A member of the RNA family "Singlet oxygen resistance RNA X" from Sedimentitalea nanhaiensis, 72 nucleotides long.
NCBI's taxonomy places the organism under Bacteria, Pseudomonadota, Alphaproteobacteria, Paracoccaceae, Sedimentitalea.
The literature on the family includes a 2016 paper in RNA Biol by Peng et al., "Regulation of a polyamine transporter by the conserved 3' UTR-derived sRNA SorX confers resistance to singlet oxygen and organic hydroperoxides in Rhodobacter sphaeroides".
About the family: SorX (RSs2461)like SorY is a singlet oxygen induced sRNA that counteracts oxidative stress by targeting mRNA for a transporter in Rhodobacter. It also has an impact on resistance against organic hydroperoxides.
Pairs were carried over by alignment from the consensus structure.

RNA sequence: ACCCCGCGUAUGUCCGGGUUAUGACAUACACCUCCCUGUUGGACUUGGCCGGGCAAAUGCCCGGCCUUUUUU
Numbered sequence: 001a002c003c004c005c006g007c008g009u010a011u012g013u014c015c016g017g018g019u020u021a022u023g024a025c026a027u028a029c030a031c032c033u034c035c036c037u038g039u040u041g042g043a044c045u046u047g048g049c050c051g052g053g054c055a056a057a058u059g060c061c062c063g064g065c066c067u068u069u070u071u072u
Base pairs, nucleotide, nucleotide: 008029009028010027011026012025013024014023047066048065049064050063051062052061053060054059